[Rfam]
RNA sequence: AUCGGUCCUCGGUAGUGGCUGCCGGAGCCAAGUGGGUUCCGGCCGCUUCGAUCGAAGGCCGUC
Numbered sequence: 001a002u003c004g005g006u007c008c009u010c011g012g013u014a015g016u017g018g019c020u021g022c023c024g025g026a027g028c029c030a031a032g033u034g035g036g037u038u039c040c041g042g043c044c045g046c047u048u049c050g051a052u053c054g055a056a057g058g059c060c061g062u063c
Stems, first nucleotide, its partner, number of pairs: 003061005009055005017047003021043009
A member of the RNA family "Actino-pnp RNA" from Gordonia asplenii, 63 nucleotides long. The match comes from Rfam's covariance-model search (64 bits). The family's consensus secondary structure is taken from published work. NCBI's taxonomy places the organism under Bacteria, Actinomycetota, Actinomycetes, Gordoniaceae, Gordonia.